The family of this 71-nucleotide RNA from Acidovorax sp. CF316 is "Xanthine riboswitch aptamer (NMT1 RNA)". For this family Rfam cites "A bacterial riboswitch class senses xanthine and uric acid to regulate genes associated with purine oxidation" (Yu and Breaker, RNA, 2020). Rfam links the family to the GO term purine nucleobase binding. Pairs were carried over by alignment from the consensus structure, which is taken from published work.

RNA sequence: GGUAAGAGUAGAAGCGUUCAGUCCAGCCAAUCCGCAUUGCGUGGACCGGCUGGCGGGUCAUUGCUCUUGAA
Numbered sequence: 001g002g003u004a005a006g007a008g009u010a011g012a013a014g015c016g017u018u019c020a021g022u023c024c025a026g027c028c029a030a031u032c033c034g035c036a037u038u039g040c041g042u043g044g045a046c047c048g049g050c051u052g053g054c055g056g057g058u059c060a061u062u063g064c065u066c067u068u069g070a071a
Stems, first nucleotide, its partner, number of pairs: 005067006015056001019057001021054003025051003